[Rfam]
RNA sequence: GCUCCCAUAGCUCAGUUGGUUAGAGCAUCUGACUCAUAAUCAGAGGGUCACAGGUUCGAGCCCUGUUGGGAGCA
Numbered sequence: 001g002c003u004c005c006c007a008u009a010g011c012u013c014a015g016u017u018g019g020u021u022a023g024a025g026c027a028u029c030u031g032a033c034u035c036a037u038a039a040u041c042a043g044a045g046g047g048u049c050a051c052a053g054g055u056u057c058g059a060g061c062c063c064u065g066u067u068g069g070g071a072g073c074a
Stems, first nucleotide, its partner, number of pairs: 001073007010026004028044005050066005

Shown here is a 74-nucleotide RNA sequence from Flammeovirga pectinis, a member of the family "tRNA".
Gene Ontology term of the family: triplet codon-amino acid adaptor activity.
It is annotated as a transfer RNA.